The record is a 130-nucleotide RNA sequence from Castor canadensis, which matches "Small nucleolar RNA SNORA72" in Rfam. U72 is a member of the H/ACA class of snoRNAs. The snoRNA gene is located in intron 4 of the ribosomal L30 protein gene in human, mouse and chicken. The organism belongs to Castor, within Eukaryota.
Nucleotides: 130
Base pairs, nucleotide, nucleotide: 003057004056005055016044019041020040021039022038023037024036025035026034067123068122069121070120072119082107083106084105085102086101087100088099089098
Number, partner (000 for none) and nucleotide at each position: 001000c002000u003057g004056u005055g006000a007000a008000u009000a010000u011000u012000c013000u014000u015000g016044c017000c018000a019041u020040u021039c022038u023037g024036a025035u026034u027000u028000u029000a030000u031000a032000a033000u034026a035025a036024u037023c038022a039021g040020g041019a042000c043000a044016g045000g046000c047000u048000a049000a050000a051000c052000a053000u054000u055005u056004g057003c058000c059000c060000u061000a062000u063000u064000a065000a066000g067123a068122c069121c070120a071000u072119g073000c074000a075000u076000a077000u078000a079000u080000c081000c082107u083106c084105a085102c086101c087100u088099a089098g090000u091000a092000c093000u094000u095000u096000c097000c098089c099088u100087a101086g102085g103000c104000c105084u106083g107082g108000u109000u110000u111000u112000a113000u114000a115000a116000a117000u118000a119072c120070u121069g122068g123067u124000g125000a126000u127000a128000a129000a130000c